[Rfam]
RNA sequence: ACGCAUCCCCGCUUCGAGCCUGACCCGCCUAAGGCGGUUGCGCUAUGGUGACAGGCCGCGCACAUUCUUGUGCAAAGGGCCAUUUUGGAAACGAGAUGACCUACCGAAUUUGUAAAGGAGCAAUCAAAACAUGAAA
Numbered sequence: 001a002c003g004c005a006u007c008c009c010c011g012c013u014u015c016g017a018g019c020c021u022g023a024c025c026c027g028c029c030u031a032a033g034g035c036g037g038u039u040g041c042g043c044u045a046u047g048g049u050g051a052c053a054g055g056c057c058g059c060g061c062a063c064a065u066u067c068u069u070g071u072g073c074a075a076a077g078g079g080c081c082a083u084u085u086u087g088g089a090a091a092c093g094a095g096a097u098g099a100c101c102u103a104c105c106g107a108a109u110u111u112g113u114a115a116a117g118g119a120g121c122a123a124u125c126a127a128a129a130c131a132u133g134a135a136a
Stems, first nucleotide, its partner, number of pairs: 003130001006127001011121005018056005024050001027049003033044004058073005077102003081098007103113002
Molybdenum/Tungsten riboswitch aptamer (Moco RNA motif): a 136-nucleotide RNA sequence from Lawsonibacter faecis. It scores 73 bits against the family's covariance model.